[Rfam]
A member of the RNA family "Bacterial RNase P class A" from Salinibacterium xinjiangense, 371 nucleotides long.
It is annotated as a ribozyme.
Rfam describes the family as follows. Ribonuclease P (RNase P) is a ubiquitous endoribonuclease, found in archaea, bacteria and eukarya as well as chloroplasts and mitochondria.
Nucleotides: 371
Stems, first nucleotide, its partner, number of pairs: 001367009011356001012322007020041002023038006046354003050351005055227004062259004067223005072086005087101001088099004102218002107216002109212003124157002126153003130149008165183006185207001186205008231279004240270006252262003286305008
Number, partner (000 for none) and nucleotide at each position: 001367u002366g003365g004364g005363u006362c007361g008360g009359c010000a011356a012322g013321a014320c015319g016318g017317c018316c019000g020041c021040g022000u023038g024037g025036g026035g027034c028033a029000g030000c031000a032000a033028u034027g035026c036025c037024u038023c039000c040021c041020g042000a043000g044000g045000a046354a047353c048352g049000u050351c051350c052349g053348g054347g055227c056226u057225c058224c059000g060000c061000a062259g063258a064257g065256c066000a067223u068222g069221g070220c071219g072086g073085u074084g075083g076082g077000u078000a079000a080000c081000a082076c083075c084074c085073a086072c087101c088099c089098g090097g091096g092000g093000u094000a095000a096091c097090c098089c099088g100000c101087g102218a103217g104000a105000u106000a107216g108215u109212g110211c111210a112000a113000c114000a115000g116000a117000a118000a119000g120000c121000a122000g123000a124157c125156c126153g127152c128151c129000a130149c131148u132147g133146u134145g135144u136143g137142u138000u139000u140000c141000u142137a143136c144135a145134c146133a147132c148131g149130g150000g151128g152127g153126u154000a155000a156125g157124g158000g159000u160000g161000a162000a163000a164000c165183g166182g167181u168180g169179g170178u171000g172000u173000a174000a175000g176000a177000g178170a179169c180168c181167a182166c183165c184000a185207g186205c187204g188203g189202c190201c191200g192199g193198g194000g195000u196000g197000a198193c199192c200191c201190g202189g203188u204187c205186g206000g207185c208000u209000a210111u211110g212109u213000a214000a215108a216107c217103c218102u219071c220070g221069c222068c223067a224058g225057g226056a227055g228000c229000a230000a231279g232278g233277u234276c235000a236000g237000a238000c239000a240270g241269g242268a243267a244266g245265c246000g247000u248000u249000c250000a251000a252262g253261g254260c255000u256065g257064c258063u259062c260254g261253c262252c263000c264000a265245g266244c267243u268242u269241c270240c271000g272000g273000g274000u275000a276234g277233a278232c279231c280000g281000c282000u283000a284000g285000a286305g287304g288303c289302g290301u291300g292299c293298g294000g295000c296000a297000a298293c299292g300291u301290a302289c303288g304287u305286c306000g307000u308000a309000g310000a311000u312000a313000g314000a315000u316018g317017g318016c319015c320014g321013u322012c323000c324000a325000u326000c327000g328000c329000c330000c331000u332000c333000g334000g335000g336000c337000g338000a339000a340000g341000a342000c343000a344000g345000a346000a347054c348053c349052c350051g351050g352048c353047g354046u355000a356011u357000c358000a359009g360008c361007c362006g363005g364004c365003c366002c367001a368000u369000u370000c371000c